The family of this 63-nucleotide RNA is "RAGATH-18 RNA". It is one of the family's seed sequences. The base pairs follow the family's consensus structure, which is taken from published work. From the family's description: Actinobacteria, Firmicutes, Fusobacteria, Thermotogae (1 example). Rfam classes the family as a small RNA.

RNA sequence: CCCUCGGACUGCUAUAUCAAACCAAAGUAGCUUUAAGCAAAAUGGAGUAGGUUGAACAGGGAA
Numbered sequence: 001c002c003c004u005c006g007g008a009c010u011g012c013u014a015u016a017u018c019a020a021a022c023c024a025a026a027g028u029a030g031c032u033u034u035a036a037g038c039a040a041a042a043u044g045g046a047g048u049a050g051g052u053u054g055a056a057c058a059g060g061g062a063a
Base pairs, nucleotide, nucleotide: 001061002060003059004058009050010049011048012047013046022045023044024043030038031037032036